Shown here is a 180-nucleotide RNA from Mannheimia varigena, a member of the family "nqrA-II ncRNA motif". It is one of the family's seed sequences. Taxonomically the source falls in Mannheimia varigena (Bacteria, Pseudomonadati, Pseudomonadota, Gammaproteobacteria).
RNA sequence: UAAUCUUUUGUUAAAAGAUAGCGAAAGAUUAUGAACCAAAUUUGAGAACUUAAUGUGGCUUUGAAAAUAAGUGGGAAAUUCAUCAUUUAUUUUUAAAUAAAGCUGCGGCUCAAUAGAAGCGAUUGCGUUAUUUCGCAAUCAUAUUUUUAACCCAAAAGAAAAGUAGUGCAAACAAUAUGA
Numbered sequence: 001u002a003a004u005c006u007u008u009u010g011u012u013a014a015a016a017g018a019u020a021g022c023g024a025a026a027g028a029u030u031a032u033g034a035a036c037c038a039a040a041u042u043u044g045a046g047a048a049c050u051u052a053a054u055g056u057g058g059c060u061u062u063g064a065a066a067a068u069a070a071g072u073g074g075g076a077a078a079u080u081c082a083u084c085a086u087u088u089a090u091u092u093u094u095a096a097a098u099a100a101a102g103c104u105g106c107g108g109c110u111c112a113a114u115a116g117a118a119g120c121g122a123u124u125g126c127g128u129u130a131u132u133u134c135g136c137a138a139u140c141a142u143a144u145u146u147u148u149a150a151c152c153c154a155a156a157a158g159a160a161a162a163g164u165a166g167u168g169c170a171a172a173c174a175a176u177a178u179g180a
Stems, first nucleotide, its partner, number of pairs: 002030012042113005054107006060097014074081002119169002121140007143164006

Pairs were carried over by alignment from the consensus structure, which is taken from published work. The family's RNA type in Rfam is cis-regulatory element.